[Rfam]
RNA sequence: CGGUGUCCUGCUUCAACAGUGCUUGGAGGGAACCG
Numbered sequence: 001c002g003g004u005g006u007c008c009u010g011c012u013u014c015a016a017c018a019g020u021g022c023u024u025g026g027a028g029g030g031a032a033c034c035g
Base pairs, nucleotide, nucleotide: 001035002034003033004032006031007030008029012027013026014025015024016023017021
Dot-bracket structure: ((((.(((...((((((...).))))).)))))))
Description: Iron response element I: a 35-nucleotide RNA sequence from Marmota marmota. The match comes from Rfam's covariance-model search (43 bits). Taxonomically the source falls in Marmota marmota (Eukaryota, Teleostomi, Sarcopterygii, Sciuridae). The family's consensus secondary structure is taken from published work. The family has 62 seed sequences and 6,829 matches in Rfam 15.1. Rfam classes the family as a cis-regulatory element. The literature on the family includes a 2002 paper in Insect Biochem Mol Biol by Nichol and Winzerling, "Structured RNA upstream of insect cap distal iron responsive elements enhances iron regulatory protein-mediated control of translation".